[Rfam]
RNA sequence: GAUUUCCUGUGUGUGGAUGGUGUUCAGCACCAAGGACAGGUGUGUUUACUUGUGUGUGGAUGGUGUUCAGUACCAAGGACAGGAUGUUUCCUG
Numbered sequence: 001g002a003u004u005u006c007c008u009g010u011g012u013g014u015g016g017a018u019g020g021u022g023u024u025c026a027g028c029a030c031c032a033a034g035g036a037c038a039g040g041u042g043u044g045u046u047u048a049c050u051u052g053u054g055u056g057u058g059g060a061u062g063g064u065g066u067u068c069a070g071u072a073c074c075a076a077g078g079a080c081a082g083g084a085u086g087u088u089u090c091c092u093g
Stems, first nucleotide, its partner, number of pairs: 004084001006083005018075007026067007034055001036053007